[Rfam]
RNA sequence: UCAGAUCCUCAGGGCGGGGUGAAAGUCCCCACCGGCGGUGAUGUCAACACCGGACGUUGAUUCGGUGGCGAACAAGCCCGCGAGCGCAUGAUGCGCAGGAAUCGGUGAGAUCCCGAUGCCGACGGUGAUAGUCCGGAUGGGAGAGGAUCGAC
Numbered sequence: 001u002c003a004g005a006u007c008c009u010c011a012g013g014g015c016g017g018g019g020u021g022a023a024a025g026u027c028c029c030c031a032c033c034g035g036c037g038g039u040g041a042u043g044u045c046a047a048c049a050c051c052g053g054a055c056g057u058u059g060a061u062u063c064g065g066u067g068g069c070g071a072a073c074a075a076g077c078c079c080g081c082g083a084g085c086g087c088a089u090g091a092u093g094c095g096c097a098g099g100a101a102u103c104g105g106u107g108a109g110a111u112c113c114c115g116a117u118g119c120c121g122a123c124g125g126u127g128a129u130a131g132u133c134c135g136g137a138u139g140g141g142a143g144a145g146g147a148u149c150g151a152c
Base pairs, nucleotide, nucleotide: 004149005148006147007146008145009144010143017029018028019027031132032131033121034120035081036080037079038078076119077118084096085095086094101117102116103115104114105113123135124134125133
RNA: FMN riboswitch aptamer (RFN element)
Organism: Kushneria marisflavi